Notes
A member of the RNA family "c-di-AMP riboswitch aptamer (ydaO/yuaA leader)" from Arthrobacter glacialis, 197 nucleotides long.

RNA sequence: GCUCUGCCGCCGCCCAUUUCCCUCCAUUCCCAUGGCAGAGACGGGGGACCCAAUCUUUGCGGGCCUUCCAUAUGGAAGCCCUUGGGGUUAAGCCACCGCAGUUCUUUCAAGCAGUGAACUCUGCCUGCCAUUACUGCGUAGCCGGAUUCUCUAGUCCGUUCCCGACAGCUCACCUCGCAGGCGUAGAGAGGCUACAA
Dot-bracket structure: ..........((((...(((.................))).(((((....((..............................))(((.....(.((.........................................)).)..((((......))))...))).........)))))..))))..............